[Rfam]
RNA sequence: GUCGUCACCACCAUGUGACGUAAAGAGCUUUCAGAUUGAGAGCUGACAAACUGUUAAGGAAGAAAUCGAUG
Numbered sequence: 001g002u003c004g005u006c007a008c009c010a011c012c013a014u015g016u017g018a019c020g021u022a023a024a025g026a027g028c029u030u031u032c033a034g035a036u037u038g039a040g041a042g043c044u045g046a047c048a049a050a051c052u053g054u055u056a057a058g059g060a061a062g063a064a065a066u067c068g069a070u071g
Stems, first nucleotide, its partner, number of pairs: 002022001003020006026044006

Notes:
A member of the RNA family "osmY RNA", 71 nucleotides long. The base pairs follow the family's consensus structure, which is taken from published work.